The record is a 140-nucleotide RNA from Paenibacillus algicola, which matches "c-di-AMP riboswitch aptamer (ydaO/yuaA leader)" in Rfam. About the family: This family represents a conserved RNA structure found upstream of the ydaO and yuaA genes in Bacillus subtilis and related genes in other bacteria. Rfam links the family to the GO terms regulation of gene expression and cyclic-di-AMP binding.
[Rfam]
RNA sequence: UUUUUCAGAAAGCCGAAUUUCCGAAUGUAAGGAAAACGGGGGAUCCGUCCUGGGUGAAUUGACCUUGUAACAGAGGGGUCAUAGGUUAACCUUCUCAACCGAACCCUUAAGCUAACCUCGCAGGCUUGGAAGGAGCUUUU
Numbered sequence: 001u002u003u004u005u006c007a008g009a010a011a012g013c014c015g016a017a018u019u020u021c022c023g024a025a026u027g028u029a030a031g032g033a034a035a036a037c038g039g040g041g042g043a044u045c046c047g048u049c050c051u052g053g054g055u056g057a058a059u060u061g062a063c064c065u066u067g068u069a070a071c072a073g074a075g076g077g078g079u080c081a082u083a084g085g086u087u088a089a090c091c092u093u094c095u096c097a098a099c100c101g102a103a104c105c106c107u108u109a110a111g112c113u114a115a116c117c118u119c120g121c122a123g124g125c126u127u128g129g130a131a132g133g134a135g136c137u138u139u140u
Base pairs, nucleotide, nucleotide: 011126012125013124014123018035019034020033021032022031037120038119039118040117041116052106053105054104060081061080062079063078064077065076066075084100085099086098087097